Shown here is a 65-nucleotide RNA sequence from Pantoea vagans, a member of the family "RybB RNA". The family's RNA type in Rfam is small RNA. For this family Rfam cites "Identification of novel small RNAs using comparative genomics and microarrays" (Wassarman et al., Genes Dev, 2001). Taxonomically the source falls in Pantoea (Bacteria, Pseudomonadati, Pseudomonadota, Gammaproteobacteria).

RNA sequence: ACUGCUUUUCUUUGAAAUCCCCAAAUUGAGGAGCCCGCCGGUCACUGACUUGCGGGUUUUUUUAU
Numbered sequence: 001a002c003u004g005c006u007u008u009u010c011u012u013u014g015a016a017a018u019c020c021c022c023a024a025a026u027u028g029a030g031g032a033g034c035c036c037g038c039c040g041g042u043c044a045c046u047g048a049c050u051u052g053c054g055g056g057u058u059u060u061u062u063u064a065u
Base pairs, nucleotide, nucleotide: 032058033057034056035055036054037053038052040050041049042048043047
This ncRNA was identified in a large scale screen of E. coli. The function of this short RNA is unknown. The exact 5' and 3' ends of this RNA are uncertain.